[Rfam]
RNA sequence: ACGGGUCUUGCCGAAGACCUUUAAAGACGGCACAAUCAGGCGGAAACUGUAAUCCGCAAUUACAAAUAACAGAUAUAAAUGAUUGUCAAAAGGAGAACAA
Numbered sequence: 001a002c003g004g005g006u007c008u009u010g011c012c013g014a015a016g017a018c019c020u021u022u023a024a025a026g027a028c029g030g031c032a033c034a035a036u037c038a039g040g041c042g043g044a045a046a047c048u049g050u051a052a053u054c055c056g057c058a059a060u061u062a063c064a065a066a067u068a069a070c071a072g073a074u075a076u077a078a079a080u081g082a083u084u085g086u087c088a089a090a091a092g093g094a095g096a097a098c099a100a
Base pairs, nucleotide, nucleotide: 005018006017007016008015010031011030012029013028033085034084035083036082037081040057041056042055043054044053

The family of this 100-nucleotide RNA is "GP20-a RNA". The family's consensus secondary structure is taken from published work. By type it is a cis-regulatory element.